[Rfam]
RNA sequence: UUAAUAUCGCUGAGGAGAAGGUGAGAACCUUCGAUAAGGUUCGAGUCGAGCAAUGCGAGACAACGUUGCCAUCGGCAACGGCCCGAAGGGCGAAUCGCGCAGCGAUGAGUCAUCCUUCUCCCACCACCA
Numbered sequence: 001u002u003a004a005u006a007u008c009g010c011u012g013a014g015g016a017g018a019a020g021g022u023g024a025g026a027a028c029c030u031u032c033g034a035u036a037a038g039g040u041u042c043g044a045g046u047c048g049a050g051c052a053a054u055g056c057g058a059g060a061c062a063a064c065g066u067u068g069c070c071a072u073c074g075g076c077a078a079c080g081g082c083c084c085g086a087a088g089g090g091c092g093a094a095u096c097g098c099g100c101a102g103c104g105a106u107g108a109g110u111c112a113u114c115c116u117u118c119u120c121c122c123a124c125c126a127c128c129a
Stems, first nucleotide, its partner, number of pairs: 015120007022112001032092002035089001040087004047057002064080006